[Rfam]
RNA sequence: UACUGUGGUUGUUUCUGUAUUUGGCAGAUCUGUAACUAUGUCAGAGCAGCCUUGAACUACCACAGAGAUCAGAAAGGAGAAGGCUGGGCUGAGAACUUCAUCAAGCUUUUAGUUUUCAGCUUUUUGUUCAUCUCCUACAGAA
Numbered sequence: 001u002a003c004u005g006u007g008g009u010u011g012u013u014u015c016u017g018u019a020u021u022u023g024g025c026a027g028a029u030c031u032g033u034a035a036c037u038a039u040g041u042c043a044g045a046g047c048a049g050c051c052u053u054g055a056a057c058u059a060c061c062a063c064a065g066a067g068a069u070c071a072g073a074a075a076g077g078a079g080a081a082g083g084c085u086g087g088g089c090u091g092a093g094a095a096c097u098u099c100a101u102c103a104a105g106c107u108u109u110u111a112g113u114u115u116u117c118a119g120c121u122u123u124u125u126g127u128u129c130a131u132c133u134c135c136u137a138c139a140g141a142a
Base pairs, nucleotide, nucleotide: 005063006062007061008060009059011057023051024050025049027047029045030044031043032042076135077134078133079132080131103125104124105123
Small nucleolar RNA SNORA12: a 142-nucleotide sequence from Brachypteracias leptosomus. Rfam 15.1 lists 571 matches to the family in 378 species. It is annotated as an H/ACA-box small nucleolar RNA. U108 belongs to the H/ACA family of snoRNAs. The sequence is predicted to guide the pseudouridylation of the U372 residue in the 28S rRNA subunit. However it has not been reported as a pseudouridylation site. A search with the family's covariance model found it, with a score of 67 bits.